[Rfam]
RNA: c-di-AMP riboswitch aptamer (ydaO/yuaA leader)
RNA sequence: GCUCCUAAUUCGCUUAAUUCUUCAUAAAAAGAAGCGGGGGAACCAAUUUACGGGGUGAAUCGGUGCUCGACCAGACUCCAACGUGUUGUCGGCAUCGUAGGGCUACUCUUUCGGCCCGAAUCCGUCAGCUAACUUCGUAAGCGUUGAAAGGGAGGAAAC
Numbered sequence: 001g002c003u004c005c006u007a008a009u010u011c012g013c014u015u016a017a018u019u020c021u022u023c024a025u026a027a028a029a030a031g032a033a034g035c036g037g038g039g040g041a042a043c044c045a046a047u048u049u050a051c052g053g054g055g056u057g058a059a060u061c062g063g064u065g066c067u068c069g070a071c072c073a074g075a076c077u078c079c080a081a082c083g084u085g086u087u088g089u090c091g092g093c094a095u096c097g098u099a100g101g102g103c104u105a106c107u108c109u110u111u112c113g114g115c116c117c118g119a120a121u122c123c124g125u126c127a128g129c130u131a132a133c134u135u136c137g138u139a140a141g142c143g144u145u146g147a148a149a150g151g152g153a154g155g156a157a158a159c
Base pairs, nucleotide, nucleotide: 011143012142013141014140018033019032020031021030022029034138035137036136037135038134039133044052053123054122055121061097062096063095064094065093066092067091100117101116102115103114